[Rfam]
RNA sequence: ACACUUUCAAUUAAUGUUGAUGCGCCUAUAUAGGAGGUGCCGGUUUCGACCGGCUAUGGCGAUAAAUGGCGCCGUGUAAUAGGUACAGCGGACCCGGGGGCAGUACCCGGCGGCUCCACCAAAACCAGCAGUUUACUGCUGCUUCUGACGGGGCCGAACCAGGAUCGACGUGUGCUGAAAGACGGUGUUUUUGCCCGGGCUGAGUAACCCGCAAAACUGUUCAAAACCUAUAAGUGCCAACGAUAACGAAGCACUCGCAAUCGCUGCGUAAUCUGACGUCCUAACGGACUGAUCUUACAAGGCUAAAGCGCGGUUGGACCCACCGGGCAACAGAAGCGGAUUCC
Numbered sequence: 001a002c003a004c005u006u007u008c009a010a011u012u013a014a015u016g017u018u019g020a021u022g023c024g025c026c027u028a029u030a031u032a033g034g035a036g037g038u039g040c041c042g043g044u045u046u047c048g049a050c051c052g053g054c055u056a057u058g059g060c061g062a063u064a065a066a067u068g069g070c071g072c073c074g075u076g077u078a079a080u081a082g083g084u085a086c087a088g089c090g091g092a093c094c095c096g097g098g099g100g101c102a103g104u105a106c107c108c109g110g111c112g113g114c115u116c117c118a119c120c121a122a123a124a125c126c127a128g129c130a131g132u133u134u135a136c137u138g139c140u141g142c143u144u145c146u147g148a149c150g151g152g153g154c155c156g157a158a159c160c161a162g163g164a165u166c167g168a169c170g171u172g173u174g175c176u177g178a179a180a181g182a183c184g185g186u187g188u189u190u191u192u193g194c195c196c197g198g199g200c201u202g203a204g205u206a207a208c209c210c211g212c213a214a215a216a217c218u219g220u221u222c223a224a225a226a227c228c229u230a231u232a233a234g235u236g237c238c239a240a241c242g243a244u245a246a247c248g249a250a251g252c253a254c255u256c257g258c259a260a261u262c263g264c265u266g267c268g269u270a271a272u273c274u275g276a277c278g279u280c281c282u283a284a285c286g287g288a289c290u291g292a293u294c295u296u297a298c299a300a301g302g303c304u305a306a307a308g309c310g311c312g313g314u315u316g317g318a319c320c321c322a323c324c325g326g327g328c329a330a331c332a333g334a335a336g337c338g339g340a341u342u343c344c
Stems, first nucleotide, its partner, number of pairs: 039054005058195005069188007084174003088171003094110005111156007196211004201223003207218001311325004316342002319339002